[Rfam]
RNA sequence: UAGGGGGGACAGAGCUCAGAACCCCUCCCUGAGCUUAGGGUAACUCUUAAAGUGGAGGGGAA
Numbered sequence: 001u002a003g004g005g006g007g008g009a010c011a012g013a014g015c016u017c018a019g020a021a022c023c024c025c026u027c028c029c030u031g032a033g034c035u036u037a038g039g040g041u042a043a044c045u046c047u048u049a050a051a052g053u054g055g056a057g058g059g060g061a062a
Base pairs, nucleotide, nucleotide: 008041010039012036013035014034015033016031019028022060023059024058025057026056027055